[Rfam]
RNA sequence: AUCGCGAGUUGGAAUCUGAAAGAAGCUGGCGGCAAACAUCUGGUCUGACGGACAGAAACUUCAUAUAAGGCAUAAGACUGUGGGUAAGGUUGCAAAGCAAACCAAAGCCCUAUAGCUAUUCGGAAUAGUCAAUGUAAAUGAAGCAGACAUAAGAUUGAAAGUUAAUACC
Numbered sequence: 001a002u003c004g005c006g007a008g009u010u011g012g013a014a015u016c017u018g019a020a021a022g023a024a025g026c027u028g029g030c031g032g033c034a035a036a037c038a039u040c041u042g043g044u045c046u047g048a049c050g051g052a053c054a055g056a057a058a059c060u061u062c063a064u065a066u067a068a069g070g071c072a073u074a075a076g077a078c079u080g081u082g083g084g085u086a087a088g089g090u091u092g093c094a095a096a097g098c099a100a101a102c103c104a105a106a107g108c109c110c111u112a113u114a115g116c117u118a119u120u121c122g123g124a125a126u127a128g129u130c131a132a133u134g135u136a137a138a139u140g141a142a143g144c145a146g147a148c149a150u151a152a153g154a155u156u157g158a159a160a161g162u163u164a165a166u167a168c169c
Stems, first nucleotide, its partner, number of pairs: 002012002025169001027167002032162002038155004043148005059143006070135003076130006082110004088103004

The record is a 169-nucleotide RNA sequence from Phocaeicola coprophilus, which matches "Group II catalytic intron D1-D4-3" in Rfam.
The source organism's lineage runs through Bacteria, Bacteroidota, Bacteroidales, Phocaeicola and Phocaeicola coprophilus.
The sequence is in the family's curated seed alignment.